Description:
The record is a 108-nucleotide sequence from Planococcus lenghuensis, which matches "SAM riboswitch aptamer (S box leader)" in Rfam. About the family: The SAM riboswitch is found upstream of a number of genes which code for proteins involved in methionine or cysteine biosynthesis in Gram-positive bacteria.
[Rfam]
RNA sequence: AUCUUAUCGAGAGAAGCCGAGGGACUGGCCCGUUGACGCUUCAGCAACCUCUGACAUUGUCAGAAAGGUGCUACUUCCAGCAAGAAUGUUAUUCUUGAGAGAUAAGAG
Numbered sequence: 001a002u003c004u005u006a007u008c009g010a011g012a013g014a015a016g017c018c019g020a021g022g023g024a025c026u027g028g029c030c031c032g033u034u035g036a037c038g039c040u041u042c043a044g045c046a047a048c049c050u051c052u053g054a055c056a057u058u059g060u061c062a063g064a065a066a067g068g069u070g071c072u073a074c075u076u077c078c079a080g081c082a083a084g085a086a087u088g089u090u091a092u093u094c095u096u097g098a099g100a101g102a103u104a105a106g107a108g
Stems, first nucleotide, its partner, number of pairs: 002107007013042005021031003025080004043072004048068002050064004076100001081097006
Pairs were carried over by alignment from the consensus structure, which is taken from published work.